[Rfam]
RNA sequence: CAACGCGUUAAAACGGUUGUGAAUUAUGUUGCAAUAGUAAGCCAUAUCACAGCCAUUUUGACGAGUUUGG
Number, nucleotide and partner (000 for none) at each position: 001c000002a000003a000004c000005g000006c063007g062008u061009u060010a059011a058012a057013a056014c000015g054016g053017u052018u051019g050020u049021g048022a047023a000024u000025u046026a045027u044028g000029u000030u000031g000032c000033a000034a000035u000036a000037g000038u000039a000040a000041g000042c000043c000044a027045u026046a025047u022048c021049a020050c019051a018052g017053c016054c015055a000056u013057u012058u011059u010060g009061a008062c007063g006064a000065g000066u000067u000068u000069g000070g000